[Rfam]
RNA sequence: UUCCGAUAAAUGCAAACCCAGGGAAACCUGGCGACGCAAAGCUACAGGGGCUAAGGUCUUGCCCGGACUAUGCCAGCCAGUUGCCGAA
Numbered sequence: 001u002u003c004c005g006a007u008a009a010a011u012g013c014a015a016a017c018c019c020a021g022g023g024a025a026a027c028c029u030g031g032c033g034a035c036g037c038a039a040a041g042c043u044a045c046a047g048g049g050g051c052u053a054a055g056g057u058c059u060u061g062c063c064c065g066g067a068c069u070a071u072g073c074c075a076g077c078c079a080g081u082u083g084c085c086g087a088a
Stems, first nucleotide, its partner, number of pairs: 012037002018031005040082004047078002049074003056068004